[Rfam]
RNA sequence: CUGUUCUUCAUGACGGUCUGACCUUAAAUCACGAACGGGUCAGGCCUGAUGUUUGACAG
Dot-bracket structure: ((((..........((((((((((............)))))))))).........))))
The record is a 59-nucleotide sequence from Alligator sinensis, which matches "Selenocysteine insertion sequence 1" in Rfam. Rfam's curators write: The incorporation of selenocysteine into a protein sequence is directed by an in-frame UGA codon (usually a stop codon) within the coding region of the mRNA. Selenoprotein mRNAs contain a conserved secondary structure in the 3' UTR that is required for the distinction of UGA stop from UGA selenocysteine. The selenocysteine insertion sequence (SECIS) is around 60 nt in length and adopts a hairpin structure which is sufficiently well-defined and conserved to act as a computational screen for selenoprotein genes. NCBI's taxonomy places the organism under Eukaryota, Deuterostomia, Dipnotetrapodomorpha, Amniota, Alligator. Rfam classes the family as a cis-regulatory element. Its family is annotated with selenocysteine incorporation in the Gene Ontology.